[Rfam]
This 67-nucleotide RNA from Denticeps clupeoides belongs to the Rfam family "mir-24 microRNA precursor family". Rfam 15.1 lists 1,372 matches to the family in 601 species. A reference for the family is Lagos-Quintana et al. (2001), "Identification of novel genes coding for small expressed RNAs", Science. Gene Ontology terms of the family: RISC complex and miRNA-mediated post-transcriptional gene silencing. About the family: This family represents the microRNA (miRNA) mir-24 family. miRNAs are transcribed as ~70nt precursors (modelled here) and subsequently processed by the Dicer enzyme to give a ~22nt product. In this case the mature sequence comes from the 3' arm of the precursor. The extents of the hairpin precursors are not generally known and are estimated based on hairpin prediction. The products are thought to have regulatory roles through complementarity to mRNA. The involvement of Dicer in miRNA processing suggests a relationship with the phenomenon of RNA interference. miRNAs are numbered based on the sequence of the mature RNA. miR-24 has been identified in human and mouse.

RNA sequence: AUCUUCUGCGCCUGCUGUACUGACAAUCAGUAAUGUUGCAACUGGCUCAGUUCUGCAGGAACAGGAG
Numbered sequence: 001a002u003c004u005u006c007u008g009c010g011c012c013u014g015c016u017g018u019a020c021u022g023a024c025a026a027u028c029a030g031u032a033a034u035g036u037u038g039c040a041a042c043u044g045g046c047u048c049a050g051u052u053c054u055g056c057a058g059g060a061a062c063a064g065g066a067g
Base pairs, nucleotide, nucleotide: 003067004066005065006064008062011059012058013057015055017053019051020050021049022048023047027045028044029043030042031041